[Rfam]
RNA sequence: AUUUUCAAUUAGAACCGAAGCCUGCGCUUUGAUUCUCAAAACCAACUAAGUUCGAUCUUCGAAUAUGUUGCGCAGGCCUUUAGUCAAUUUGGCUAAACAGGGUAGGUAUAGAAAUGUACUUAUCUCCCAUACUUGGAAAGGUUUAUGCUAGAAGAUGCU
Numbered sequence: 001a002u003u004u005u006c007a008a009u010u011a012g013a014a015c016c017g018a019a020g021c022c023u024g025c026g027c028u029u030u031g032a033u034u035c036u037c038a039a040a041a042c043c044a045a046c047u048a049a050g051u052u053c054g055a056u057c058u059u060c061g062a063a064u065a066u067g068u069u070g071c072g073c074a075g076g077c078c079u080u081u082a083g084u085c086a087a088u089u090u091g092g093c094u095a096a097a098c099a100g101g102g103u104a105g106g107u108a109u110a111g112a113a114a115u116g117u118a119c120u121u122a123u124c125u126c127c128c129a130u131a132c133u134u135g136g137a138a139a140g141g142u143u144u145a146u147g148c149u150a151g152a153a154g155a156u157g158c159u
Stems, first nucleotide, its partner, number of pairs: 003153002012144005020077008032064004079097007100125011126136002
A member of the RNA family "Molybdenum/Tungsten riboswitch aptamer (Moco RNA motif)" from Alginatibacterium sediminis, 159 nucleotides long. NCBI's taxonomy places the organism under Bacteria, Pseudomonadati, Alteromonadales, Alteromonadaceae, Alginatibacterium. The match comes from Rfam's covariance-model search (59 bits).